[Rfam]
RNA sequence: GGAAAGUUACCCAAGCUUGGCUGAAGGGGACGGUCUCGAAAACCGUUAGGUCGGGAAACCGGCGCAAGGGUUCGAAUCCCUUACUUUCCA
Numbered sequence: 001g002g003a004a005a006g007u008u009a010c011c012c013a014a015g016c017u018u019g020g021c022u023g024a025a026g027g028g029g030a031c032g033g034u035c036u037c038g039a040a041a042a043c044c045g046u047u048a049g050g051u052c053g054g055g056a057a058a059c060c061g062g063c064g065c066a067a068g069g070g071u072u073c074g075a076a077u078c079c080c081u082u083a084c085u086u087u088c089c090a
Stems, first nucleotide, its partner, number of pairs: 001089007010028003030046005066082005
tRNA: a 90-nucleotide RNA sequence from Vagococcus elongatus. The family's consensus secondary structure is taken from published work. The family has 954 seed sequences and 5,335,975 matches in Rfam 15.1. Its family is annotated with triplet codon-amino acid adaptor activity in the Gene Ontology.